Nucleotides: 135
Base pairs, nucleotide, nucleotide: 002060003059004058005057018046019045020044021043022042023040025038026037027036072127073126074125075124076123077121084112085111086110087109088108
Number, partner (000 for none) and nucleotide at each position: 001000u002060g003059c004058a005057g006000c007000c008000u009000u010000g011000u012000c013000a014000a015000a016000u017000u018046c019045a020044g021043u022042g023040c024000u025038c026037c027036g028000u029000c030000u031000g032000c033000a034000g035000u036027c037026g038025g039000u040023g041000c042022c043021a044020c045019u046018g047000g048000c049000c050000a051000a052000a053000a054000u055000g056000g057005c058004u059003g060002c061000c062000a063000c064000a065000g066000u067000g068000a069000a070000g071000u072127g073126u074125a075124g076123u077121u078000c079000a080000u081000g082000g083000g084112c085111c086110u087109c088108a089000u090000u091000g092000g093000u094000u095000u096000g097000a098000a099000c100000a101000u102000a103000a104000u105000c106000u107000c108088u109087g110086g111085g112084g113000a114000u115000a116000a117000a118000u119000a120000u121077g122000u123076a124075c125074u126073a127072c128000a129000c130000a131000c132000a133000a134000a135000a
Rfam assigns this 135-nucleotide sequence from Neogobius melanostomus to the family "Small nucleolar RNA SNORA5". Its family is annotated with RNA processing and nucleolus in the Gene Ontology. It is annotated as an H/ACA-box small nucleolar RNA. Taxonomically the source falls in Neogobius (Eukaryota, Eumetazoa, Actinopteri, Gobiaria).